[Rfam]
RNA sequence: UAAUGAUACUAGCAAACUCACUGAAAGAGAAGGAUGCAAAGCCAUGGAUCUAAGGAAUUCUUGAUUCUAAGAUUGUCAAAUUAAGACG
Numbered sequence: 001u002a003a004u005g006a007u008a009c010u011a012g013c014a015a016a017c018u019c020a021c022u023g024a025a026a027g028a029g030a031a032g033g034a035u036g037c038a039a040a041g042c043c044a045u046g047g048a049u050c051u052a053a054g055g056a057a058u059u060c061u062u063g064a065u066u067c068u069a070a071g072a073u074u075g076u077c078a079a080a081u082u083a084a085g086a087c088g
Base pairs, nucleotide, nucleotide: 012037013036017032018031022027040082041081045078046077047076048073049072050071055067056066057065058064
Annotation: Shown here is an 88-nucleotide sequence from Anaerosolibacter carboniphilus, a member of the family "c-di-GMP-I riboswitch aptamer". GEMM was predicted in a large-scale screen for bacterial structured RNA regulatory elements. The match comes from Rfam's covariance-model search (41 bits).